Nucleotides: 080
Stems, first nucleotide, its partner, number of pairs: 007019002011015001026032002052073009
Number, partner (000 for none) and nucleotide at each position: 001000u002000u003000a004000a005000c006000a007019c008018g009000g010000u011015u012000a013000c014000a015011a016000u017000g018008c019007g020000u021000a022000u023000a024000a025000c026032u027031a028000a029000a030000a031027u032026a033000u034000g035000a036000a037000a038000a039000a040000u041000u042000c043000c044000u045000c046000u047000u048000u049000g050000a051000c052073u053072g054071g055070c056069c057068a058067a059066u060065a061000g062000c063000g064000a065060u066059a067058u068057u069056g070055g071054c072053c073052a074000c075000u076000u077000u078000u079000u080000u

This 80-nucleotide sequence from Serratia fonticola belongs to the Rfam family "sroB RNA". Lineage of the source: Bacteria > Pseudomonadota > Gammaproteobacteria > Yersiniaceae > Serratia. For this family Rfam cites "RNomics in Escherichia coli detects new sRNA species and indicates parallel transcriptional output in bacteria" (Vogel et al., Nucleic Acids Res, 2003). A search with the family's covariance model found it, with a score of 72 bits. It is annotated as a small RNA.